Description
Group II catalytic intron D1-D4-3: a 175-nucleotide RNA sequence from Clostridium acetobutylicum.
RNA sequence: UCCUUCGUGAGGAGGAAUCUGAAGGAAGUACUAGGCAAAUUCUCGGUCUGAGGUAUACGAAUCACAUACAAGGCUUAUCUAGGUAGGACGAGUUUGCAUAACAAAACAAAGUCCAACACUAUCCGAAUUCCUAGAAAGUAAAUGUGGCAGAUAUAUGAGAGGAAGGUUGUCGUUC
Number, nucleotide and partner (000 for none) at each position: 001u016002c015003c014004u013005u012006c011007g000008u000009g000010a000011g006012g005013a004014g003015g002016a001017a000018u000019c000020u000021g000022a000023a000024g000025g000026a000027a000028g175029u000030a173031c172032u000033a000034g000035g167036c166037a000038a000039a000040u161041u160042c159043u158044c157045g156046g152047u151048c150049u149050g148051a000052g000053g000054u000055a000056u000057a000058c000059g000060a000061a000062u147063c146064a145065c144066a143067u142068a000069c000070a000071a000072g000073g139074c138075u137076u136077a000078u135079c134080u133081a132082g131083g130084u000085a000086g114087g113088a112089c111090g000091a000092g107093u106094u105095u104096g000097c000098a000099u000100a000101a000102c000103a000104a095105a094106a093107c092108a000109a000110a000111g089112u088113c087114c086115a000116a000117c000118a000119c000120u000121a000122u000123c000124c000125g000126a000127a000128u000129u000130c083131c082132u081133a080134g079135a078136a076137a075138g074139u073140a000141a000142a067143u066144g065145u064146g063147g062148c050149a049150g048151a047152u046153a000154u000155a000156u045157g044158a043159g042160a041161g040162g000163a000164a000165g000166g036167u035168u000169g000170u000171c000172g031173u030174u000175c028
Description:
The literature on the family includes a 2001 paper in Trends Genet by Bonen and Vogel, "The ins and outs of group II introns". Gene Ontology term of the family: Group II intron splicing. Pairs were carried over by alignment from the consensus structure.